[Rfam]
RNA: c-di-AMP riboswitch aptamer (ydaO/yuaA leader)
RNA sequence: AAAAUCUAUAUGCUGAAUCCUGAACGCAGCGUUUGGGAACGGAGGGUCCAUAUUUUUGGGGUGAAUCUGGUCUGUGAACUAGUAGGGUGAAGUUCUCUCUUGCCACCCGAACCCGUCAGCUAACUUCGUAAGCAUUGCAGCGGGAGAGG
Numbered sequence: 001a002a003a004a005u006c007u008a009u010a011u012g013c014u015g016a017a018u019c020c021u022g023a024a025c026g027c028a029g030c031g032u033u034u035g036g037g038a039a040c041g042g043a044g045g046g047u048c049c050a051u052a053u054u055u056u057u058g059g060g061g062u063g064a065a066u067c068u069g070g071u072c073u074g075u076g077a078a079c080u081a082g083u084a085g086g087g088u089g090a091a092g093u094u095c096u097c098u099c100u101u102g103c104c105a106c107c108c109g110a111a112c113c114c115g116u117c118a119g120c121u122a123a124c125u126u127c128g129u130a131a132g133c134a135u136u137g138c139a140g141c142g143g144g145a146g147a148g149g
Stems, first nucleotide, its partner, number of pairs: 011134004018038008039129006049058002059114003067082004085108004